[Rfam]
RNA sequence: ACGCAUCAUCAAGAGAAGGGCUGGCGCCCUCGCCAACCUGCCUAACCGGGCAAGGUGGUUUCCGCCGAAAGGGAUGUGGUUUCGAAAUGAGGACUCAGUCUUCACCAUUCGUAACAACCAAGCGGUAAAUU
Numbered sequence: 001a002c003g004c005a006u007c008a009u010c011a012a013g014a015g016a017a018g019g020g021c022u023g024g025c026g027c028c029c030u031c032g033c034c035a036a037c038c039u040g041c042c043u044a045a046c047c048g049g050g051c052a053a054g055g056u057g058g059u060u061u062c063c064g065c066c067g068a069a070a071g072g073g074a075u076g077u078g079g080u081u082u083c084g085a086a087a088u089g090a091g092g093a094c095u096c097a098g099u100c101u102u103c104a105c106c107a108u109u110c111g112u113a114a115c116a117a118c119c120a121a122g123c124g125g126u127a128a129a130u131u
Base pairs, nucleotide, nucleotide: 007076008075009074010073015031017030018029019028020027021026032059033058034057037055038054039053040051041050042049045126046125047124048123079115080114081113
The record is a 131-nucleotide RNA sequence from Pseudovibrio axinellae, which matches "SAM-I/IV (S-adenosyl methionine) riboswitch aptamer" in Rfam. The base pairs follow the family's consensus structure, which is taken from published work. Its family is annotated with S-adenosylmethionine metabolic process and regulation of gene expression in the Gene Ontology. The match comes from Rfam's covariance-model search (61 bits).